[Rfam]
Description: The record is a 55-nucleotide RNA sequence, which matches "nhaA-I RNA" in Rfam. Acidobacteria, Alphaproteobacteria, Betaproteobacteria and Gammaproteobacteria, Verrucomicrobia, cand. division NC10.
RNA sequence: GGGUCCGGGGCUAUGUAGCCCCGGAGGUCAACGCGGAUGGUCGGGCCGCCAUCCG
Numbered sequence: 001g002g003g004u005c006c007g008g009g010g011c012u013a014u015g016u017a018g019c020c021c022c023g024g025a026g027g028u029c030a031a032c033g034c035g036g037a038u039g040g041u042c043g044g045g046c047c048g049c050c051a052u053c054c055g
Base pairs, nucleotide, nucleotide: 005024006023007022008021009020010019011018012017034055035054036053037052039050040049041048